[Rfam]
RNA: L13-Bacteroidia ribosomal protein leader
RNA sequence: GGGGAGAGACUUAGAAUCCCCACGGGUUGAUGUGUGAAUAGCUGUGUCUUUGGCCGGGCGCGGUGGUUCGAGAAUC
Numbered sequence: 001g002g003g004g005a006g007a008g009a010c011u012u013a014g015a016a017u018c019c020c021c022a023c024g025g026g027u028u029g030a031u032g033u034g035u036g037a038a039u040a041g042c043u044g045u046g047u048c049u050u051u052g053g054c055c056g057g058g059c060g061c062g063g064u065g066g067u068u069c070g071a072g073a074a075u076c
Stems, first nucleotide, its partner, number of pairs: 001021005035070005041064009